[Rfam]
RNA: Fluoride riboswitch aptamer (crcB RNA motif)
Organism: Zhenhengia yiwuensis
RNA sequence: AAUACUAAAGGGAAUGAAGUACUCCCUUGGUGAAUGAGACCGAAACCGCUAAUAUUAAAGCUGAUGACUUCUGCGCCUAG
Dot-bracket structure: .........[[[[..(((((..]]]].....................(((........))).....))))).........
Numbered sequence: 001a002a003u004a005c006u007a008a009a010g011g012g013a014a015u016g017a018a019g020u021a022c023u024c025c026c027u028u029g030g031u032g033a034a035u036g037a038g039a040c041c042g043a044a045a046c047c048g049c050u051a052a053u054a055u056u057a058a059a060g061c062u063g064a065u066g067a068c069u070u071c072u073g074c075g076c077c078u079a080g
Stems, first nucleotide, its partner, number of pairs: 010026004016071005048061003